Background: The record is a 103-nucleotide sequence from Dreissena polymorpha, which matches "Vault RNA" in Rfam. Rfam 15.1 lists 2,873 matches to the family in 431 species. The source organism's lineage runs through Eukaryota, Bilateria, Myida, Dreissenidae and Dreissena. The base pairs follow the family's consensus structure, which is taken from published work.
RNA sequence: GGGCUGGCGUAGUCGAGUGGUUACUUCGAGAAAACAAAUAGGUGUUUGAACAGUUAACGUGGGUUCGCUCCCCAUAGAUCCACUGACGCAAACUAUCCCAUUU
Numbered sequence: 001g002g003g004c005u006g007g008c009g010u011a012g013u014c015g016a017g018u019g020g021u022u023a024c025u026u027c028g029a030g031a032a033a034a035c036a037a038a039u040a041g042g043u044g045u046u047u048g049a050a051c052a053g054u055u056a057a058c059g060u061g062g063g064u065u066c067g068c069u070c071c072c073c074a075u076a077g078a079u080c081c082a083c084u085g086a087c088g089c090a091a092a093c094u095a096u097c098c099c100a101u102u103u
Stems, first nucleotide, its partner, number of pairs: 002098002005095003012087004017083004027067003
Dot-bracket structure: .((.(((....((((.((((......(((...................................)))............)))))))).....))).)).....